[Rfam]
RNA sequence: GCUGGUAUAUAUGAUGACUAAACUUUUUUCCCCAUCUGAUCGACUAUGUUGAUCUGUACUACUACUAUGCCAGUUUUUUCUGAUAUACCAGC
Dot-bracket structure: (((((((((..........................................................................)))))))))
RNA: Small nucleolar SNORD12/SNORD106